[Rfam]
Nucleotides: 366
Base pairs, nucleotide, nucleotide: 001362002361003360004359005358006357007356008355009354010353011351012321013320014319015318016317017316018315020037021036023034024033025032026031042349043348044347046346047345048344049343050342051221052220053219054218058256059255060254061253063217064216065215066214067213068082069081070080071079072078083104084102085101086100087099088098089097090096105212106211110210111209112206113205114204127153128152129149130148131147134144135143137141161179162178163177164176165175166174182201183200184199185198186197187196188195189194225278226277227276228275235269236268237267238266239265240264248260249259250258251257285304286303287302288301289300290299291298292297
Number, partner (000 for none) and nucleotide at each position: 001362a002361a003360u004359g005358c006357a007356a008355g009354c010353c011351g012321u013320c014319c015318u016317g017316c018315c019000g020037c021036u022000g023034c024033g025032a026031u027000u028000u029000c030000g031026a032025u033024c034023g035000a036021a037020g038000a039000g040000g041000a042349a043348a044347g045000u046346c047345c048344g049343g050342g051221c052220a053219a054218c055000g056000c057000a058256g059255a060254g061253c062000a063217u064216c065215u066214c067213g068082c069081u070080u071079c072078c073000u074000a075000a076000c077000g078072g079071g080070a081069a082068g083104a084102g085101g086100u087099u088098c089097g090096g091000u092000u093000u094000a095000a096090c097089c098088g099087a100086a101085u102084u103000a104083u105212g106211g107000a108000a109000a110210g111209u112206g113205c114204c115000g116000c117000a118000g119000a120000a121000a122000a123000c124000a125000u126000a127153c128152c129149g130148c131147c132000g133000a134144u135143g136000g137141c138000u139000u140000a141137g142000g143135c144134a145000c146000a147131g148130g149129u150000a151000a152128g153127g154000u155000u156000g157000a158000a159000a160000a161179c162178g163177u164176g165175a166174g167000g168000u169000a170000a171000g172000a173000g174166c175165u176164c177163a178162c179161g180000a181000c182201a183200g184199u185198u186197g187196c188195g189194g190000g191000c192000g193000a194189c195188c196187g197186u198185a199184g200183u201182u202000g203000u204114g205113g206112u207000a208000a209111a210110c211106c212105c213067c214066g215065g216064g217063a218054g219053u220052u221051g222000a223000a224000a225278g226277a227276c228275c229000a230000a231000a232000u233000a234000g235269g236268c237267u238266a239265a240264c241000g242000c243000a244000u245000g246000u247000a248260g249259g250258g251257c252000u253061g254060c255059u256058c257251g258250u259249c260248c261000g262000a263000u264240g265239u266238u267237a268236g269235u270000g271000g272000g273000u274000a275228g276227g277226u278225c279000g280000u281000u282000u283000g284000a285304g286303a287302u288301a289300a290299a291298u292297g293000g294000c295000a296000a297292c298291g299290u300289u301288u302287a303286u304285u305000c306000u307000a308000g309000a310000u311000u312000a313000a314000u315018g316017g317016u318015a319014g320013g321012a322000a323000c324000c325000g326000g327000u328000u329000c330000a331000c332000c333000g334000g335000u336000a337000c338000a339000g340000a341000a342050c343049c344048c345047g346046g347044c348043u349042u350000a351011c352000a353010g354009g355008c356007u357006u358005g359004c360003a361002u362001u363000u364000u365000u366000u